[Rfam]
RNA sequence: UGGGCAUCAUGGUUAUUUUGUUUGAAAACUGAUUUUUCUCAUAUUUUUAGGGCAUUAUAUUUUUAGGAAUUUAUAUUUAUUGGUGGGCUCGAUUGGAUUCGAACCAACGACCCCCACCA
Numbered sequence: 001u002g003g004g005c006a007u008c009a010u011g012g013u014u015a016u017u018u019u020g021u022u023u024g025a026a027a028a029c030u031g032a033u034u035u036u037u038c039u040c041a042u043a044u045u046u047u048u049a050g051g052g053c054a055u056u057a058u059a060u061u062u063u064u065a066g067g068a069a070u071u072u073a074u075a076u077u078u079a080u081u082g083g084u085g086g087g088c089u090c091g092a093u094u095g096g097a098u099u100c101g102a103a104c105c106a107a108c109g110a111c112c113c114c115c116a117c118c119a
Stems, first nucleotide, its partner, number of pairs: 007032003013026002081116003085112002090109002093107004
RNA: Bacterial antisense RNA HPnc0260
Organism: Candidatus Vallotiella hemipterorum